[Rfam]
RNA sequence: GAGCCCCUGACUGGGUUAAAGUCACA
Numbered sequence: 001g002a003g004c005c006c007c008u009g010a011c012u013g014g015g016u017u018a019a020a021g022u023c024a025c026a
Stems, first nucleotide, its partner, number of pairs: 002017005008024005

Pseudoknot of upstream pseudoknot domain (UPD) of the 3'UTR: a 26-nucleotide RNA sequence from Bromovirus BMV. The literature on the family includes a 1993 paper in J Virol by Lahser et al., "Contributions of the brome mosaic virus RNA-3 3'-nontranslated region to replication and translation". NCBI's taxonomy places the organism under Viruses, Orthornavirae, Alsuviricetes, Bromoviridae, Bromovirus BMV. Gene Ontology terms of the family: regulation of viral transcription and positive regulation of viral translation. It is annotated as a cis-regulatory element. Rfam's curators put it in the seed alignment.